A member of the RNA family "nhaA-I RNA" from Novosphingobium sp. Leaf2, 61 nucleotides long. From the family's description: Acidobacteria, Alphaproteobacteria, Betaproteobacteria and Gammaproteobacteria, Verrucomicrobia, cand. division NC10. Pairs were carried over by alignment from the consensus structure, which is taken from published work. Lineage of the source: Bacteria > Pseudomonadati > Pseudomonadota > Alphaproteobacteria > Novosphingobium.
[Rfam]
RNA sequence: GGGUGUUCACGUUUCCCUUGUGGUGUGUGGGCAGGUGUUAACGCUGGUCGGGCCGCCAGCG
Numbered sequence: 001g002g003g004u005g006u007u008c009a010c011g012u013u014u015c016c017c018u019u020g021u022g023g024u025g026u027g028u029g030g031g032c033a034g035g036u037g038u039u040a041a042c043g044c045u046g047g048u049c050g051g052g053c054c055g056c057c058a059g060c061g
Base pairs, nucleotide, nucleotide: 005032006031007030008029009028010027011026012025042061043060044059045058046057047056048055